[Rfam]
The record is a 44-nucleotide RNA sequence from Brevibacillus brevis, which matches "PreQ1 (pre queuosine) riboswitch aptamer" in Rfam. Rfam 15.1 lists 873 matches to the family in 692 species.
RNA sequence: ACGGGAGAGGUUCGCGAACUCCCUCUAUAAAAAACUAAGCUGGA
Numbered sequence: 001a002c003g004g005g006a007g008a009g010g011u012u013c014g015c016g017a018a019c020u021c022c023c024u025c026u027a028u029a030a031a032a033a034a035c036u037a038a039g040c041u042g043g044a
Stems, first nucleotide, its partner, number of pairs: 006026005016036001
Rfam's curators write: This family is a bacterial riboswitch that binds to the metabolite preQ1, an intermediate in the biosynthesis of the modified nucleoside queuosine from GTP. One example of this riboswitch is located in the leader of the Bacillus subtilis ykvJKLM (queCDEF) operon which encodes four genes necessary for queuosine production. PreQ1 binding to the riboswitch aptamer is thought to induce premature transcription termination within the leader to down-regulate expression of these genes. The organism belongs to Brevibacillus brevis, within Bacteria.